The family of this 77-nucleotide RNA from Gasterosteus aculeatus is "mir-458 microRNA precursor family". Taxonomically the source falls in Gasterosteus (Eukaryota, Metazoa, Craniata, Teleostei). The literature on the family includes a 2005 paper in Genes Dev by Chen et al., "The developmental miRNA profiles of zebrafish as determined by small RNA cloning".
RNA sequence: GUGUGGACGGCAGCGCCAUUUUCAGAGCUAUAAGUGUGAAGUGGUCAUAGCUCUUUAAAUGGUACUGCCGUGUGCAC
Numbered sequence: 001g002u003g004u005g006g007a008c009g010g011c012a013g014c015g016c017c018a019u020u021u022u023c024a025g026a027g028c029u030a031u032a033a034g035u036g037u038g039a040a041g042u043g044g045u046c047a048u049a050g051c052u053c054u055u056u057a058a059a060u061g062g063u064a065c066u067g068c069c070g071u072g073u074g075c076a077c
Stems, first nucleotide, its partner, number of pairs: 002076003007071003011067003015063007024054008